A member of the RNA family "Small nucleolar RNA SNORD79" from Sphenodon punctatus, 78 nucleotides long. Rfam links the family to the GO terms RNA processing and nucleolus. The family has 28 seed sequences and 784 matches in Rfam 15.1. Rfam classes the family as a C/D-box small nucleolar RNA. The organism belongs to Sphenodon, within Eukaryota. From the family's description: snoRNA U79 or Z22 is found in intron 7 of the gas5 gene in humans and is also present in mice.
[Rfam]
RNA sequence: UACUGUUUGUGAUGAUUUUGUUAAACAAUGGGAAUCUCUCUGAAAGAGAGUGAGGAGAACUUUUAUACUGAAACAGUA
Numbered sequence: 001u002a003c004u005g006u007u008u009g010u011g012a013u014g015a016u017u018u019u020g021u022u023a024a025a026c027a028a029u030g031g032g033a034a035u036c037u038c039u040c041u042g043a044a045a046g047a048g049a050g051u052g053a054g055g056a057g058a059a060c061u062u063u064u065a066u067a068c069u070g071a072a073a074c075a076g077u078a
Base pairs, nucleotide, nucleotide: 001078002077003076004075005074006073007072